[Rfam]
RNA sequence: AGAACGGUCCGGGCCCCUCUGGCGUCCUUAUCCCAUGUAUAAGGCACGCGAUGUCGGACUGCCCAC
Numbered sequence: 001a002g003a004a005c006g007g008u009c010c011g012g013g014c015c016c017c018u019c020u021g022g023c024g025u026c027c028u029u030a031u032c033c034c035a036u037g038u039a040u041a042a043g044g045c046a047c048g049c050g051a052u053g054u055c056g057g058a059c060u061g062c063c064c065a066c
Stems, first nucleotide, its partner, number of pairs: 006060007022049004027044003
RNA: terC RNA